The family of this 270-nucleotide sequence from Pyrenochaeta sp. DS3sAY3a is "A. fumigatus sRNA Afu_309". Pairs were carried over by alignment from the consensus structure, which was predicted with WAR.
RNA sequence: UCCAACCGCCCUGUGCCAGCCUUCCCGUCCGCUUCUUCGGAGGCGUGUUCUGGUUGAAGUCUGGCAGUUCGUCCGUCCUAUGGAGCCAUCUUCUUCUCGAUAGAUUGUUUCGGACGACAGGUCGCAGAGAAAGUCGGGGCGCAUCCAAAGCCUGAGUUCGCCGCAAGGUUUGAGCUCGGUGGAGGGGCGUCGCCAGGCUGACUGAUUUCAAGUCCCUUUUGCUAGGCCGUCGGCCAGUGAUGCUUGGGAAUAACCCAGUCCGCUACAUAC
Numbered sequence: 001u002c003c004a005a006c007c008g009c010c011c012u013g014u015g016c017c018a019g020c021c022u023u024c025c026c027g028u029c030c031g032c033u034u035c036u037u038c039g040g041a042g043g044c045g046u047g048u049u050c051u052g053g054u055u056g057a058a059g060u061c062u063g064g065c066a067g068u069u070c071g072u073c074c075g076u077c078c079u080a081u082g083g084a085g086c087c088a089u090c091u092u093c094u095u096c097u098c099g100a101u102a103g104a105u106u107g108u109u110u111c112g113g114a115c116g117a118c119a120g121g122u123c124g125c126a127g128a129g130a131a132a133g134u135c136g137g138g139g140c141g142c143a144u145c146c147a148a149a150g151c152c153u154g155a156g157u158u159c160g161c162c163g164c165a166a167g168g169u170u171u172g173a174g175c176u177c178g179g180u181g182g183a184g185g186g187g188c189g190u191c192g193c194c195a196g197g198c199u200g201a202c203u204g205a206u207u208u209c210a211a212g213u214c215c216c217u218u219u220u221g222c223u224a225g226g227c228c229g230u231c232g233g234c235c236a237g238u239g240a241u242g243c244u245u246g247g248g249a250a251u252a253a254c255c256c257a258g259u260c261c262g263c264u265a266c267a268u269a270c
Stems, first nucleotide, its partner, number of pairs: 007124002010121005015065005021059004025053003029047001031044005074116005085105001087103001135192003141188002149180001151179002154177006161168002197263002200260005213249004221243002225235004
The family has 10 seed sequences and 663 matches in Rfam 15.1. The organism belongs to Pyrenochaeta, within Eukaryota.